[Rfam]
RNA: Small nucleolar RNA R16
Organism: Gossypium raimondii
RNA sequence: GAUGGCAAGGGAUGGAUAUUUAUCUUAUCAUACACUCUGAUUAAACCGUGUAGAUUCAAAUAUUCGCUUAUUGAUAUUCUGAUGCCAUU
Numbered sequence: 001g002a003u004g005g006c007a008a009g010g011g012a013u014g015g016a017u018a019u020u021u022a023u024c025u026u027a028u029c030a031u032a033c034a035c036u037c038u039g040a041u042u043a044a045a046c047c048g049u050g051u052a053g054a055u056u057c058a059a060a061u062a063u064u065c066g067c068u069u070a071u072u073g074a075u076a077u078u079c080u081g082a083u084g085c086c087a088u089u
Stems, first nucleotide, its partner, number of pairs: 003087005